[Rfam]
RNA: MIR6217 microRNA precursor family
Organism: Miscanthus lutarioriparius
RNA sequence: AUAACUUAUUCUGUAUCCACUUUGAGUUACGAUAAUUACUAUGUUAAUUUACGAGAUUAUAGUAACUCCUUGCUAAGUUGUUUACUAUAACGUUAUGGUAAAUAUCCCCAUGUGUUAUUAGUAACCCAACUAUCGUAAAUAUGUAUUGACAUUAUCGUAAAUUAGUAUAUAAAAUUAUCGUAAAUAGAGAUGGUUACAGAAUAACUUAU
Numbered sequence: 001a002u003a004a005c006u007u008a009u010u011c012u013g014u015a016u017c018c019a020c021u022u023u024g025a026g027u028u029a030c031g032a033u034a035a036u037u038a039c040u041a042u043g044u045u046a047a048u049u050u051a052c053g054a055g056a057u058u059a060u061a062g063u064a065a066c067u068c069c070u071u072g073c074u075a076a077g078u079u080g081u082u083u084a085c086u087a088u089a090a091c092g093u094u095a096u097g098g099u100a101a102a103u104a105u106c107c108c109c110a111u112g113u114g115u116u117a118u119u120a121g122u123a124a125c126c127c128a129a130c131u132a133u134c135g136u137a138a139a140u141a142u143g144u145a146u147u148g149a150c151a152u153u154a155u156c157g158u159a160a161a162u163u164a165g166u167a168u169a170u171a172a173a174a175u176u177a178u179c180g181u182a183a184a185u186a187g188a189g190a191u192g193g194u195u196a197c198a199g200a201a202u203a204a205c206u207u208a209u
Base pairs, nucleotide, nucleotide: 001209002208003207004206006204007203008202009201010200011199012198013197014196015195017193018192019191021189022188023187027183028182029181030180031179032178033177034176035175036174037173040169041168042167043166044165045164046163047162048161049160050159051158052157055156056155057154059152060151064146070138071137072136073135077133078132080130081129082128083123084122085121086120087119088117089116090115091114092113093112097107098106